[Rfam]
RNA sequence: CCCUAGCCCCGAUUGAAGCGGCAUCCUUUUUUGCCAUUAAAAGCAAAAAAGAUAUAGCGGAAAGCGGGAUUAGCU
Dot-bracket structure: ........(((.((...((...(((...((((((........))))))..)))...))...)).)))........
Numbered sequence: 001c002c003c004u005a006g007c008c009c010c011g012a013u014u015g016a017a018g019c020g021g022c023a024u025c026c027u028u029u030u031u032u033g034c035c036a037u038u039a040a041a042a043g044c045a046a047a048a049a050a051g052a053u054a055u056a057g058c059g060g061a062a063a064g065c066g067g068g069a070u071u072a073g074c075u
Stems, first nucleotide, its partner, number of pairs: 009067003013063002018058002023053003029048006
Rfam assigns this 75-nucleotide RNA from Neotamlana nanhaiensis to the family "Flavo-1 RNA". A search with the family's covariance model found it, with a score of 70 bits. Rfam classes the family as a small RNA. The organism belongs to Neotamlana, within Bacteria. Pairs were carried over by alignment from the consensus structure, which is taken from published work.